Rfam assigns this 88-nucleotide RNA from Spartinivicinus marinus to the family "t44 RNA".
Rfam describes the family as follows. This family consists of a number of bacterial RNA genes of between 135 and 170 bases in length. The t44 gene has been identified in several species of enteric bacteria but homologs have also been identified in Pseudomonas and Coxiella species.
The family's RNA type in Rfam is small RNA.

RNA sequence: CUAAAUGGCAGGAUAUAACACACACACACCAAUACCAUUACUCUGGGUGCCUAAACAGGUUGAGUCGUGGGGUGUGUGGAGGCCUAAC
Numbered sequence: 001c002u003a004a005a006u007g008g009c010a011g012g013a014u015a016u017a018a019c020a021c022a023c024a025c026a027c028a029c030c031a032a033u034a035c036c037a038u039u040a041c042u043c044u045g046g047g048u049g050c051c052u053a054a055a056c057a058g059g060u061u062g063a064g065u066c067g068u069g070g071g072g073u074g075u076g077u078g079g080a081g082g083c084c085u086a087a088c
Stems, first nucleotide, its partner, number of pairs: 023078008036069003040065004049060004